RNA: c-di-GMP-I riboswitch aptamer
RNA sequence: AUCUGUGAAAUGCAAACCCGGCGAAAGCCGGCGACGCAAAGCCAAGGGCCUAAAGCAUACGCUAUGGCAGCCAGUUGCCGCA
Numbered sequence: 001a002u003c004u005g006u007g008a009a010a011u012g013c014a015a016a017c018c019c020g021g022c023g024a025a026a027g028c029c030g031g032c033g034a035c036g037c038a039a040a041g042c043c044a045a046g047g048g049c050c051u052a053a054a055g056c057a058u059a060c061g062c063u064a065u066g067g068c069a070g071c072c073a074g075u076u077g078c079c080g081c082a
Base pairs, nucleotide, nucleotide: 012037013036018031019030020029021028022027040076041075042074046072047071048068049067050066055062056061